[Rfam]
RNA sequence: UUUUUAGUAUAAGUAUGUCCUAUGCAAUAUCUAGGACAUACAUCCACUAAAA
Numbered sequence: 001u002u003u004u005u006a007g008u009a010u011a012a013g014u015a016u017g018u019c020c021u022a023u024g025c026a027a028u029a030u031c032u033a034g035g036a037c038a039u040a041c042a043u044c045c046a047c048u049a050a051a052a
Stems, first nucleotide, its partner, number of pairs: 006048003011043001014040003018036004

Rfam assigns this 52-nucleotide sequence from Cnephaeus nilssonii to the family "mir-1302 microRNA precursor family". Pairs were carried over by alignment from the consensus structure, which was predicted with WAR. Lineage of the source: Eukaryota > Bilateria > Deuterostomia > Sarcopterygii > Cnephaeus. The literature on the family includes a 2008 paper in Genome Res by Morin et al., "Application of massively parallel sequencing to microRNA profiling and discovery in human embryonic stem cells".